RNA sequence: GUCUGUCCAGUGCCCCUUUUAGGGUUGUACUACUGGUAAAAACUGUAAUAAAAGCAGUGCAAUGUUAAAAGGGCAUUGGCCAGGGA
Numbered sequence: 001g002u003c004u005g006u007c008c009a010g011u012g013c014c015c016c017u018u019u020u021a022g023g024g025u026u027g028u029a030c031u032a033c034u035g036g037u038a039a040a041a042a043c044u045g046u047a048a049u050a051a052a053a054g055c056a057g058u059g060c061a062a063u064g065u066u067a068a069a070a071g072g073g074c075a076u077u078g079g080c081c082a083g084g085g086a
Base pairs, nucleotide, nucleotide: 002085003084005081007079008078009077010076012074013073014072016071017070018069019068020067024063025062026061027060028059029058030057031056
Record summary
Rfam assigns this 86-nucleotide RNA from Erpetoichthys calabaricus to the family "mir-130 microRNA precursor family". The literature on the family includes a 2002 paper in Curr Biol by Lagos-Quintana et al., "Identification of tissue-specific microRNAs from mouse". Gene Ontology terms of the family: RISC complex and miRNA-mediated post-transcriptional gene silencing. The source organism's lineage runs through Eukaryota, Craniata, Polypteriformes, Polypteridae and Erpetoichthys. The family has 9 seed sequences and 2,580 matches in Rfam 15.1.